Shown here is a 268-nucleotide part of an RNA from an uncultured Nitrososphaerota archaeon, a member of the family "Archaeal large subunit ribosomal RNA". Rfam links the family to the GO terms structural constituent of ribosome and ribosome. The sequence is in the family's curated seed alignment.
[Rfam]
RNA sequence: GAGUUCAUCUUCACGGCGAGUUUAAGGGCCGAAAGCCCGAAGGCGAAGGGAAACCGAAAUUCCGCAGCCUCCUUCGGGAGGUGAGGGAAGGGGUCUGAAAGGGCCUCGUAGCCGUGGGGGUGAGACUAGAAACCGGACGAUCUAGCCCUGGGCAGGGUGAAGCCGGGGGAAACCCCGGUGGAGGCCCGUAGGGGUGCUGACGUGCAAUUCGCGUCCUCAGACCUGGGGCUAGGGGCCAAAAGCCAAUCUAGUCCGGUGAUAGCUAGUU
Numbered sequence: 001g002a003g004u005u006c007a008u009c010u011u012c013a014c015g016g017c018g019a020g021u022u023u024a025a026g027g028g029c030c031g032a033a034a035g036c037c038c039g040a041a042g043g044c045g046a047a048g049g050g051a052a053a054c055c056g057a058a059a060u061u062c063c064g065c066a067g068c069c070u071c072c073u074u075c076g077g078g079a080g081g082u083g084a085g086g087g088a089a090g091g092g093g094u095c096u097g098a099a100a101g102g103g104c105c106u107c108g109u110a111g112c113c114g115u116g117g118g119g120g121u122g123a124g125a126c127u128a129g130a131a132a133c134c135g136g137a138c139g140a141u142c143u144a145g146c147c148c149u150g151g152g153c154a155g156g157g158u159g160a161a162g163c164c165g166g167g168g169g170a171a172a173c174c175c176c177g178g179u180g181g182a183g184g185c186c187c188g189u190a191g192g193g194g195u196g197c198u199g200a201c202g203u204g205c206a207a208u209u210c211g212c213g214u215c216c217u218c219a220g221a222c223c224u225g226g227g228g229c230u231a232g233g234g235g236c237c238a239a240a241a242g243c244c245a246a247u248c249u250a251g252u253c254c255g256g257u258g259a260u261a262g263c264u265a266g267u268u
Stems, first nucleotide, its partner, number of pairs: 005123013020044004026038004048055002060089004067082006092105004126266002129263001133256006142232011153220001155187004162179007191217004196212002199210002234244003